This 97-nucleotide RNA sequence from Lawsonibacter hominis belongs to the Rfam family "SAM riboswitch aptamer (S box leader)". Rfam describes the family as follows. The SAM riboswitch is found upstream of a number of genes which code for proteins involved in methionine or cysteine biosynthesis in Gram-positive bacteria.

RNA sequence: GCCUUAUCAAGAGUGGCGGAGGGAUCGGCCCGAUGAAGCCCGGCAACCUGCAUUGCAAGGUGCCAAAUCCGACGGUAGAAGUAUCGAAAGAUGAGGA
Numbered sequence: 001g002c003c004u005u006a007u008c009a010a011g012a013g014u015g016g017c018g019g020a021g022g023g024a025u026c027g028g029c030c031c032g033a034u035g036a037a038g039c040c041c042g043g044c045a046a047c048c049u050g051c052a053u054u055g056c057a058a059g060g061u062g063c064c065a066a067a068u069c070c071g072a073c074g075g076u077a078g079a080a081g082u083a084u085c086g087a088a089a090g091a092u093g094a095g096g097a
Base pairs, nucleotide, nucleotide: 002096003095004094005093006092007091008090013041015040016039017038021031022030023029025072026071027070028069042064043063044062045061047060048059049057050056051055068089073086074085075084076083077082
The family's consensus secondary structure is taken from published work. NCBI's taxonomy places the organism under Bacteria, Bacillati, Bacillota, Clostridia, Lawsonibacter.